[Rfam]
RNA: Plastid-clpP 5UTR RNA
RNA sequence: AACUCUAUUUGUAGGAACAAAGAGAAAUAGAUUUAUUCUAUACUCGAUAAGUACCAAUACGUAAUGGGA
Numbered sequence: 001a002a003c004u005c006u007a008u009u010u011g012u013a014g015g016a017a018c019a020a021a022g023a024g025a026a027a028u029a030g031a032u033u034u035a036u037u038c039u040a041u042a043c044u045c046g047a048u049a050a051g052u053a054c055c056a057a058u059a060c061g062u063a064a065u066g067g068g069a
Base pairs, nucleotide, nucleotide: 003022004021006019008017009016010015043068044067045066051060052059053058